RNA sequence: AUAAACAGAAGAGGCGCGAUGCUUAGGUAGUUAGUGUGAGGUGACGAGACCAAUGACCACUAGUGAGGGAAGUAUUCGCCGAGGAGAAAAGUUGCUCGUCGCAGCGAUUCUUCGGUUUACGAGGCUGAAUCCUCGGAACUGUCACCGUAUUGGUGGAGAGCUUCUGGCAAA
Numbered sequence: 001a002u003a004a005a006c007a008g009a010a011g012a013g014g015c016g017c018g019a020u021g022c023u024u025a026g027g028u029a030g031u032u033a034g035u036g037u038g039a040g041g042u043g044a045c046g047a048g049a050c051c052a053a054u055g056a057c058c059a060c061u062a063g064u065g066a067g068g069g070a071a072g073u074a075u076u077c078g079c080c081g082a083g084g085a086g087a088a089a090a091g092u093u094g095c096u097c098g099u100c101g102c103a104g105c106g107a108u109u110c111u112u113c114g115g116u117u118u119a120c121g122a123g124g125c126u127g128a129a130u131c132c133u134c135g136g137a138a139c140u141g142u143c144a145c146c147g148u149a150u151u152g153g154u155g156g157a158g159a160g161c162u163u164c165u166g167g168c169a170a171a
Stems, first nucleotide, its partner, number of pairs: 006166006016079004021073004030064007083113006091105004114140004120135005142156005